RNA: Xanthine riboswitch aptamer (NMT1 RNA)
RNA sequence: GAUGGGAGUAGAAGCAGUCAGCGCCGCGCGGCGCCGGUCAUUGCUCCUUUA
Number, nucleotide and partner (000 for none) at each position: 001g000002a000003u000004g000005g047006g046007a045008g044009u043010a042011g000012a000013a000014g000015c036016a000017g000018u000019c037020a000021g034022c033023g032024c031025c030026g000027c000028g000029c000030g025031g024032c023033g022034c021035c000036g015037g019038u000039c000040a000041u000042u010043g009044c008045u007046c006047c005048u000049u000050u000051a000